[Rfam]
Record summary: The family of this 87-nucleotide RNA sequence from Cnephaeus nilssonii is "mir-9195 microRNA precursor family". The base pairs follow the family's consensus structure, which was predicted with RNAalifold. Rfam 15.1 lists 438 matches to the family in 7 species.
Nucleotides: 087
Base pairs, nucleotide, nucleotide: 004084006082012074013073014072015071016070017069020067021066022065024063025062026061027060028059029058030057031056032055033054037050038049039048040047041046
Number, partner (000 for none) and nucleotide at each position: 001000a002000g003000a004084g005000u006082c007000c008000c009000u010000c011000u012074g013073u014072g015071g016070c017069u018000g019000g020067g021066g022065u023000a024063g025062a026061a027060u028059g029058c030057u031056u032055g033054c034000c035000g036000u037050g038049u039048u040047g041046c042000c043000a044000c045000g046041g047040c048039g049038a050037c051000g052000a053000a054033g055032c056031a057030a058029g059028c060027a061026u062025u063024c064000c065022g066021c067020c068000a069017a070016g071015c072014c073013g074012c075000u076000c077000a078000u079000g080000c081000u082006g083000c084004c085000c086000g087000c